[Rfam]
RNA: mir-1 microRNA precursor family
Organism: Megaselia scalaris
RNA sequence: UUGAAAGUUCCAUGCUUCUGUGCAUUCAAUAGUAAUUAUUAAUCAUAUGGAAUGUAAAGAAGUAUGGAGCGGGUUC
Numbered sequence: 001u002u003g004a005a006a007g008u009u010c011c012a013u014g015c016u017u018c019u020g021u022g023c024a025u026u027c028a029a030u031a032g033u034a035a036u037u038a039u040u041a042a043u044c045a046u047a048u049g050g051a052a053u054g055u056a057a058a059g060a061a062g063u064a065u066g067g068a069g070c071g072g073g074u075u076c
Stems, first nucleotide, its partner, number of pairs: 007070013021056005027050001029048003